[Rfam]
RNA sequence: UGCGACCCAUCAAAGGAGUAGUUCUCCAUCCAAGGGCUACCUUACCAUAUUUCGAAUUC
Numbered sequence: 001u002g003c004g005a006c007c008c009a010u011c012a013a014a015g016g017a018g019u020a021g022u023u024c025u026c027c028a029u030c031c032a033a034g035g036g037c038u039a040c041c042u043u044a045c046c047a048u049a050u051u052u053c054g055a056a057u058u059c
Base pairs, nucleotide, nucleotide: 015043016042018040019039020038021037022036023035024034025033

This 59-nucleotide sequence from Gossypium hirsutum belongs to the Rfam family "Plastid-psbN 5UTR RNA".
NCBI's taxonomy places the organism under Eukaryota, Viridiplantae, Euphyllophyta, rosids, Gossypium.
A reference for the family is Zhelyazkova et al. (2012), "The primary transcriptome of barley chloroplasts: numerous noncoding RNAs and the dominating role of the plastid-encoded RNA polymerase", Plant Cell.
The family has 63 seed sequences and 2,345 matches in Rfam 15.1.